[Rfam]
Rfam assigns this 99-nucleotide RNA sequence from Panicum virgatum to the family "small nucleolar RNA snoR126". By type it is a C/D-box small nucleolar RNA. Its family is annotated with nucleolus and RNA processing in the Gene Ontology. It scores 60 bits against the family's covariance model.
RNA sequence: UGGCUGUGACGACAGAAAGAUAUUUUGUUGAUUCUGAUUCUUAAUGCCAUUUAAGGACCAACAAAUCGUGAUGACCUUAUUUGUGCGUGUCUGAGCCGA
Numbered sequence: 001u002g003g004c005u006g007u008g009a010c011g012a013c014a015g016a017a018a019g020a021u022a023u024u025u026u027g028u029u030g031a032u033u034c035u036g037a038u039u040c041u042u043a044a045u046g047c048c049a050u051u052u053a054a055g056g057a058c059c060a061a062c063a064a065a066u067c068g069u070g071a072u073g074a075c076c077u078u079a080u081u082u083g084u085g086c087g088u089g090u091c092u093g094a095g096c097c098g099a
Stems, first nucleotide, its partner, number of pairs: 001098004